[Rfam]
RNA sequence: CUUUGAAGUUAGACAAAAAAUUUCAAGGCGGAAGGAG
Numbered sequence: 001c002u003u004u005g006a007a008g009u010u011a012g013a014c015a016a017a018a019a020a021u022u023u024c025a026a027g028g029c030g031g032a033a034g035g036a037g
Stems, first nucleotide, its partner, number of pairs: 001028010
Shown here is a 37-nucleotide RNA sequence from Beduini massiliensis, a member of the family "L31-Firmicutes ribosomal protein leader".
By type it is a cis-regulatory leader.
Clan: Ribosomal Protein L31 Leader clan.